[Rfam]
RNA: Alphaproteobacteria transfer-messenger RNA
RNA sequence: CCCCUUUUCAUUUGGCACAAGCACCCUAUAUGAGUUUCUGCCGGUUUCGACCGGCUAUGGUGAUAAACUGCGGCGUGCAAUAGGCACAGCGGACCCGGGGGCGGUACCCGGCGGCUCCACCAUCACUACAGGUUCUUUAUCGAAUCUGGCCUUGUUGUCGCAAGGGUGUUGAUGGGGCCGAACUAGGAUCGACGUGUGUUGAAAAGCGCUGUUUUUGCCCAGGCUGAGUAACCUGUUAUAGGCUCACAACUCACAAGUGCCAACGACAACGAAGCACUUGCUCUCGCAGCAUAAUUCUAGGGGCUAACGCCCUGAAGUUAUAAAGCGUGAGCACGGUUCGGACCGAACCGGGUAACAGAAUCGGAAACC
Numbered sequence: 001c002c003c004c005u006u007u008u009c010a011u012u013u014g015g016c017a018c019a020a021g022c023a024c025c026c027u028a029u030a031u032g033a034g035u036u037u038c039u040g041c042c043g044g045u046u047u048c049g050a051c052c053g054g055c056u057a058u059g060g061u062g063a064u065a066a067a068c069u070g071c072g073g074c075g076u077g078c079a080a081u082a083g084g085c086a087c088a089g090c091g092g093a094c095c096c097g098g099g100g101g102c103g104g105u106a107c108c109c110g111g112c113g114g115c116u117c118c119a120c121c122a123u124c125a126c127u128a129c130a131g132g133u134u135c136u137u138u139a140u141c142g143a144a145u146c147u148g149g150c151c152u153u154g155u156u157g158u159c160g161c162a163a164g165g166g167u168g169u170u171g172a173u174g175g176g177g178c179c180g181a182a183c184u185a186g187g188a189u190c191g192a193c194g195u196g197u198g199u200u201g202a203a204a205a206g207c208g209c210u211g212u213u214u215u216u217g218c219c220c221a222g223g224c225u226g227a228g229u230a231a232c233c234u235g236u237u238a239u240a241g242g243c244u245c246a247c248a249a250c251u252c253a254c255a256a257g258u259g260c261c262a263a264c265g266a267c268a269a270c271g272a273a274g275c276a277c278u279u280g281c282u283c284u285c286g287c288a289g290c291a292u293a294a295u296u297c298u299a300g301g302g303g304c305u306a307a308c309g310c311c312c313u314g315a316a317g318u319u320a321u322a323a324a325g326c327g328u329g330a331g332c333a334c335g336g337u338u339c340g341g342a343c344c345g346a347a348c349c350g351g352g353u354a355a356c357a358g359a360a361u362c363g364g365a366a367a368c369c
Stems, first nucleotide, its partner, number of pairs: 040055005059219005070212007085198003089195003095111005112180007220235004225246003334350004343363001345361001